[Rfam]
RNA sequence: AUGCCUUUGGGACGAACUGGUCCCGAUAGUAAUCACCGUCUGCUUCACUUUGCCAACUAGCUUUUAUAUGCUUUAGCUUUCUGGCCAUUAAAGAUGGGAAAUGA
Numbered sequence: 001a002u003g004c005c006u007u008u009g010g011g012a013c014g015a016a017c018u019g020g021u022c023c024c025g026a027u028a029g030u031a032a033u034c035a036c037c038g039u040c041u042g043c044u045u046c047a048c049u050u051u052g053c054c055a056a057c058u059a060g061c062u063u064u065u066a067u068a069u070g071c072u073u074u075a076g077c078u079u080u081c082u083g084g085c086c087a088u089u090a091a092a093g094a095u096g097g098g099a100a101a102u103g104a
Stems, first nucleotide, its partner, number of pairs: 036097005052085004059078003

A member of the RNA family "Small nucleolar RNA snoR99" from Asparagus officinalis, 104 nucleotides long.
It scores 50 bits against the family's covariance model.
Its family is annotated with RNA processing and nucleolus in the Gene Ontology.
Lineage of the source: Eukaryota > Streptophyta > Streptophytina > Asparagaceae > Asparagus.